[Rfam]
RNA: Rhizobiales sRNA Atu_At1
RNA sequence: UCCCGGCGCGUGUCAACCGGACACGACGGCAUGGAGAACGGGCGCGGUUUUUCCGGUUUCCCGGCCCGGCCAACGAAUUGGCAGACGAGCUCCUGUCCCGUCCGCGCC
Numbered sequence: 001u002c003c004c005g006g007c008g009c010g011u012g013u014c015a016a017c018c019g020g021a022c023a024c025g026a027c028g029g030c031a032u033g034g035a036g037a038a039c040g041g042g043c044g045c046g047g048u049u050u051u052u053c054c055g056g057u058u059u060c061c062c063g064g065c066c067c068g069g070c071c072a073a074c075g076a077a078u079u080g081g082c083a084g085a086c087g088a089g090c091u092c093c094u095g096u097c098c099c100g101u102c103c104g105c106g107c108c
Stems, first nucleotide, its partner, number of pairs: 006107004011023004025102003028098002033093004039068005045063002069082003
Dot-bracket structure: .....((((.((((.....)))).(((((...((((..(((((.((...............)))))))(((........))).......))))...)).))).)))).